[Rfam]
Description: A member of the RNA family "Y RNA" from Neomonachus schauinslandi, 104 nucleotides long. Rfam describes the family as follows. Y RNAs are components of the Ro ribonucleoprotein particle (Ro RNP), in association with Ro60 and La proteins. The Y RNAs and Ro60 and La proteins are well conserved, but the function of the Ro RNP is not known. In humans the RNA component can be one of four small RNAs -- hY1, hY3, hY4 and hY5. On this family, see Van Horn et al., RNA 1995: "Caenorhabditis elegans embryos contain only one major species of Ro RNP". The base pairs follow the family's consensus structure, which is taken from published work. Taxonomically the source falls in Neomonachus (Eukaryota, Deuterostomia, Euteleostomi, Phocidae). The family's RNA type in Rfam is non-coding RNA gene.
RNA sequence: GGCUAGUCCAAGUGUAGUGGUAUUUACAAUUAAUUUAUCACAGCCAGUUACAGAUUCUUUUUUGUUCCAUCUGCACACCCAUGGCUUCACUUGACUAGCCUUUU
Numbered sequence: 001g002g003c004u005a006g007u008c009c010a011a012g013u014g015u016a017g018u019g020g021u022a023u024u025u026a027c028a029a030u031u032a033a034u035u036u037a038u039c040a041c042a043g044c045c046a047g048u049u050a051c052a053g054a055u056u057c058u059u060u061u062u063u064g065u066u067c068c069a070u071c072u073g074c075a076c077a078c079c080c081a082u083g084g085c086u087u088c089a090c091u092u093g094a095c096u097a098g099c100c101u102u103u104u
Stems, first nucleotide, its partner, number of pairs: 001100008010092002014088001017082004028066003032062002